This 83-nucleotide RNA sequence from Pseudonocardia endophytica belongs to the Rfam family "SAH (S-adenosyl-L-homocysteine) riboswitch aptamer".
[Rfam]
RNA sequence: GCGGUCGAGAGGCGCUGCAGCGGGCCCGUUCACCGGCUCGCCACGCUCGGCCGCUGGCCAUUGCACAAGGGCGCCUACUCGGA
Numbered sequence: 001g002c003g004g005u006c007g008a009g010a011g012g013c014g015c016u017g018c019a020g021c022g023g024g025c026c027c028g029u030u031c032a033c034c035g036g037c038u039c040g041c042c043a044c045g046c047u048c049g050g051c052c053g054c055u056g057g058c059c060a061u062u063g064c065a066c067a068a069g070g071g072c073g074c075c076u077a078c079u080c081g082g083a
Base pairs, nucleotide, nucleotide: 002053003052004051005050006049007048008047021040022039023038024037025036026035